The record is a 131-nucleotide RNA from Vitis rotundifolia, which matches "MIR845_2 microRNA precursor family" in Rfam. For this family Rfam cites "The grapevine genome sequence suggests ancestral hexaploidization in major angiosperm phyla" (Jaillon et al., Nature, 2007). Its family is annotated with RISC complex and miRNA-mediated post-transcriptional gene silencing in the Gene Ontology. The organism belongs to Vitis, within Eukaryota.

[Rfam]
RNA sequence: AGAAUGCACAUUGAUUAUCCCUGAGGCCAUAGGAUAAACAAAAACCUUGCAAAACCAAGUUAACAUACCUUAGAAUGGUUCUAGCAUGAUUACUAACCUAUGGCUCUGAUACCAAUUAAUGGGAAAAAUCC
Numbered sequence: 001a002g003a004a005u006g007c008a009c010a011u012u013g014a015u016u017a018u019c020c021c022u023g024a025g026g027c028c029a030u031a032g033g034a035u036a037a038a039c040a041a042a043a044a045c046c047u048u049g050c051a052a053a054a055c056c057a058a059g060u061u062a063a064c065a066u067a068c069c070u071u072a073g074a075a076u077g078g079u080u081c082u083a084g085c086a087u088g089a090u091u092a093c094u095a096a097c098c099u100a101u102g103g104c105u106c107u108g109a110u111a112c113c114a115a116u117u118a119a120u121g122g123g124a125a126a127a128a129u130c131c
Base pairs, nucleotide, nucleotide: 009121010120011119012118013117014116015115016114022108023107025105026104027103028102029101030100031099032098033097048086049085053080054079056077057076060073061072062071063070